[Rfam]
RNA sequence: CCCCUCGAGACUACCCGCAGGUAGACCUGAGCAGAGGCGUCUGGUGGCGUAGAGAAAUGUAUAGGGCAAGCUAACCCGAAAGGGUUGGCCCUCUUAACAAACUCCGAAUCCGCCAGAGCCGUAGAAGCUUGGUGCUAGGGGAUCGGGAUAAGCUUGAUCCCCGAGAGGAGAAGAAUUCAGACGAAGGUUAAGGUCCCUAAGUUAUGGUUAAGUGUAAACUAAAGGAUGUUUGCGACCCAAGACAGCUGGGAGGUUGGCUUAGAAGCAGCCAUCCUUCAAAGAGUGCGUAAUAGCUCACCCGUCGAGGUUGCAGGCUCUGAAGAUGGACGGGACUAAACCAUACACCGAUACCUUCGGACACCGAAAGGUGAUUCGGUAGAGGGGCGUGCUGCCGGGGCAGAAGUAUCUUCGAAAGGAGGUAUGGACCCGACAGUAUCGUGGAU
Dot-bracket structure: ((((((....(((((....))))).(((((((...(((.((((((((....(((....((..((((.....((((((....))))))...))))..))...)).)....)))))))))))......)))))).)...(((((((((.......)))))))))....(((......)))...(((((((...(((......(.((((((...............(((.((((((((((.......((.((.(((..(((.........)))..)))(...)(...((......)).).)).))...)))))))))))))..................))))))))))...)))))))((((((....))))..))....))))))(.(((((.((((......((((((((....))))))))...)))).)))))..).....